[Rfam]
RNA sequence: CCCGCGACAGGACGGAAAGACCCCAUGGAGCUUUACUGUAGCUUGAUAUUGAGUGUUUGUACCGCUUGUACAGGAUAGGUAGGAGCCGUGGAAGCCGGAACGCUAGUUUCGGUGGAGGCAUUGGUGGGAUACUACCCUGGCAGUACGCACACGCUAACCCGCGCCACUAAACGUGGCCGGGGACAGUGUCAGGUUGGCAGUUUGACUGGGGCGGUCGCCUCCUAAAGUGUAACGGAGGCGCCCAAAGGUUCCCUCAGAAUGGUUGGAAAUCAUUCAUGGCGUGUAAAGGCACAAGGGAGCUUGACUGUGAGACUGACAAGUCGAGCAGGGACGAAAGUCGGGCUUAGUGAUCCGGUGGUACCGUAUGGAAGGGCCAUCGCUCAACGGAUAAAAGCUACCCUGGGGAUAACAGGCUUAUCUCCCCCAAGAGUCCACAUCGACGGGGAGGUUUGGCACCUCGAUGUCGGCUCAUCACAUCCUGGGGCUGUAGUUGGUCCCAAGGGUUGGGCUGUUCGCCCAUUAAAGUGGUACGCGAGCUGGGUUCAGAACGUCGUGAGACAGUUCGGUCCCUAUCCGUCGCGGGCGUU
Numbered sequence: 001c002c003c004g005c006g007a008c009a010g011g012a013c014g015g016a017a018a019g020a021c022c023c024c025a026u027g028g029a030g031c032u033u034u035a036c037u038g039u040a041g042c043u044u045g046a047u048a049u050u051g052a053g054u055g056u057u058u059g060u061a062c063c064g065c066u067u068g069u070a071c072a073g074g075a076u077a078g079g080u081a082g083g084a085g086c087c088g089u090g091g092a093a094g095c096c097g098g099a100a101c102g103c104u105a106g107u108u109u110c111g112g113u114g115g116a117g118g119c120a121u122u123g124g125u126g127g128g129a130u131a132c133u134a135c136c137c138u139g140g141c142a143g144u145a146c147g148c149a150c151a152c153g154c155u156a157a158c159c160c161g162c163g164c165c166a167c168u169a170a171a172c173g174u175g176g177c178c179g180g181g182g183a184c185a186g187u188g189u190c191a192g193g194u195u196g197g198c199a200g201u202u203u204g205a206c207u208g209g210g211g212c213g214g215u216c217g218c219c220u221c222c223u224a225a226a227g228u229g230u231a232a233c234g235g236a237g238g239c240g241c242c243c244a245a246a247g248g249u250u251c252c253c254u255c256a257g258a259a260u261g262g263u264u265g266g267a268a269a270u271c272a273u274u275c276a277u278g279g280c281g282u283g284u285a286a287a288g289g290c291a292c293a294a295g296g297g298a299g300c301u302u303g304a305c306u307g308u309g310a311g312a313c314u315g316a317c318a319a320g321u322c323g324a325g326c327a328g329g330g331a332c333g334a335a336a337g338u339c340g341g342g343c344u345u346a347g348u349g350a351u352c353c354g355g356u357g358g359u360a361c362c363g364u365a366u367g368g369a370a371g372g373g374c375c376a377u378c379g380c381u382c383a384a385c386g387g388a389u390a391a392a393a394g395c396u397a398c399c400c401u402g403g404g405g406a407u408a409a410c411a412g413g414c415u416u417a418u419c420u421c422c423c424c425c426a427a428g429a430g431u432c433c434a435c436a437u438c439g440a441c442g443g444g445g446a447g448g449u450u451u452g453g454c455a456c457c458u459c460g461a462u463g464u465c466g467g468c469u470c471a472u473c474a475c476a477u478c479c480u481g482g483g484g485c486u487g488u489a490g491u492u493g494g495u496c497c498c499a500a501g502g503g504u505u506g507g508g509c510u511g512u513u514c515g516c517c518c519a520u521u522a523a524a525g526u527g528g529u530a531c532g533c534g535a536g537c538u539g540g541g542u543u544c545a546g547a548a549c550g551u552c553g554u555g556a557g558a559c560a561g562u563u564c565g566g567u568c569c570c571u572a573u574c575c576g577u578c579g580c581g582g583g584c585g586u587u
Base pairs, nucleotide, nucleotide: 001583002582003581004580005579006578007577008576010575011574012573014570015569022404023403024402025401027400028399029396030395031394032393033392035201036200037199038198042193043192044191045190046189047188048187051154053152054151055150056149058147059146060145061144062143064141065140066139068137078136079135080134081133082132085119086118087117094113095112096111097110098109099108100107101106158181159180160179163177164176165175166174167173204216205215206214207213217239218238219237220236221235222234240385242342243341248300249299250298251297252296253295255279257275258274259273260272261271262270281290282289305328306327307326308325311322312321313320330339331338332337353379354378355377356376357375358374359373361372362371413454414453415452417451418448419447420446421445422444423443424442428438429437465540466538467537468536469535470532471529472528473527474526475525478503479502481498482497483496484495485494486493505519506518507517508516509515546564547563548562549561550559551558552557